A member of the RNA family "Burkholderia sRNA 11" from Burkholderia cenocepacia, 208 nucleotides long. The sequence is in the family's curated seed alignment. The family's RNA type in Rfam is small RNA. From the family's description: Identified by RNA-seq, RACE and Northern blot. Strongly expressed in biofilm. Identified in as ncRNA13. It is complimentary by 40 nucleotides with a gene encoding a regulatory protein (BCAL1948). ncS11 is strongly up-regulated in the stationary phase and biofilms, while BCAL1948 is down-regulated under these conditions. Lineage of the source: Bacteria > Pseudomonadota > Betaproteobacteria > Burkholderiaceae > Burkholderia cenocepacia.
RNA sequence: CCCAUUUCGUGAAGGAAGUUCUGAGCGAAAUCAGGUGGCCGCAUAUAUUGCGAGCCAGAUAGGGCAGAACGCGCAGUCCGUGCAGACCACGGCAGAGUCGCAUUUGCGUUGCUCGAGGCGCAACCGAUACCGCCAAAGAGCCCGCCGCCCGAAGGCGCCCGCGUGCGCAUGAAAAAAGGCCUUCAUCUGGCGAUGAAGGCCUUUUACU
Numbered sequence: 001c002c003c004a005u006u007u008c009g010u011g012a013a014g015g016a017a018g019u020u021c022u023g024a025g026c027g028a029a030a031u032c033a034g035g036u037g038g039c040c041g042c043a044u045a046u047a048u049u050g051c052g053a054g055c056c057a058g059a060u061a062g063g064g065c066a067g068a069a070c071g072c073g074c075a076g077u078c079c080g081u082g083c084a085g086a087c088c089a090c091g092g093c094a095g096a097g098u099c100g101c102a103u104u105u106g107c108g109u110u111g112c113u114c115g116a117g118g119c120g121c122a123a124c125c126g127a128u129a130c131c132g133c134c135a136a137a138g139a140g141c142c143c144g145c146c147g148c149c150c151g152a153a154g155g156c157g158c159c160c161g162c163g164u165g166c167g168c169a170u171g172a173a174a175a176a177a178g179g180c181c182u183u184c185a186u187c188u189g190g191c192g193a194u195g196a197a198g199g200c201c202u203u204u205u206a207c208u
Stems, first nucleotide, its partner, number of pairs: 002035002004031007013022003036057004040052004062150004071101003074097001078092005106145003111141004117134004155168004174205014